[Rfam]
RNA sequence: AUCCGCGAACUGAGGGGUUAUUGUCUCCCCCUUCAGAUCCGGUAGCGGCUGCGGCCGCUUAUUUAUUUUUUCAAGGAG
Numbered sequence: 001a002u003c004c005g006c007g008a009a010c011u012g013a014g015g016g017g018u019u020a021u022u023g024u025c026u027c028c029c030c031c032u033u034c035a036g037a038u039c040c041g042g043u044a045g046c047g048g049c050u051g052c053g054g055c056c057g058c059u060u061a062u063u064u065a066u067u068u069u070u071u072c073a074a075g076g077a078g
Base pairs, nucleotide, nucleotide: 003042004041005040007039008038010036011035012034013033014032015031016030017029
RNA: L20-Deltaproteobacteria ribosomal protein leader
Organism: Geoalkalibacter subterraneus